[Rfam]
RNA sequence: AGGAGCCCAACAGGAGCGACAUGAGAACACAUGUGGCCACUCUUGAAGGACAAACCUUAUCCUGUGUGUUUUGAUGUGUUCUCAGGUCGCCCCUGCAGGGCUUUC
Numbered sequence: 001a002g003g004a005g006c007c008c009a010a011c012a013g014g015a016g017c018g019a020c021a022u023g024a025g026a027a028c029a030c031a032u033g034u035g036g037c038c039a040c041u042c043u044u045g046a047a048g049g050a051c052a053a054a055c056c057u058u059a060u061c062c063u064g065u066g067u068g069u070u071u072u073g074a075u076g077u078g079u080u081c082u083c084a085g086g087u088c089g090c091c092c093c094u095g096c097a098g099g100g101c102u103u104u105c
Stems, first nucleotide, its partner, number of pairs: 007099002011095004016090004023083010
MIR398 microRNA precursor family: a 105-nucleotide sequence from Theobroma cacao. Pairs were carried over by alignment from the consensus structure, which was predicted with WAR. On this family, see Xie et al., Plant Physiol 2005: "Expression of Arabidopsis MIRNA genes". The source organism's lineage runs through Eukaryota, Streptophyta, Streptophytina, Mesangiospermae and Theobroma. Rfam links the family to the GO terms miRNA-mediated post-transcriptional gene silencing and RISC complex.